[Rfam]
The record is an 87-nucleotide sequence from Ornithinibacillus hominis, which matches "Glycine riboswitch aptamer" in Rfam. The match comes from Rfam's covariance-model search (33 bits).
RNA sequence: CUCUGGAGAGUGUUUACUUCGGUAAACCACCCACGAAGCACGCAUUUUCUUAUAGGAAAUGUUAAACUUUCUGGUUACAGGACAGGG
Numbered sequence: 001c002u003c004u005g006g007a008g009a010g011u012g013u014u015u016a017c018u019u020c021g022g023u024a025a026a027c028c029a030c031c032c033a034c035g036a037a038g039c040a041c042g043c044a045u046u047u048u049c050u051u052a053u054a055g056g057a058a059a060u061g062u063u064a065a066a067c068u069u070u071c072u073g074g075u076u077a078c079a080g081g082a083c084a085g086g087g
Stems, first nucleotide, its partner, number of pairs: 001087005012027004029075003033070001036069003042062007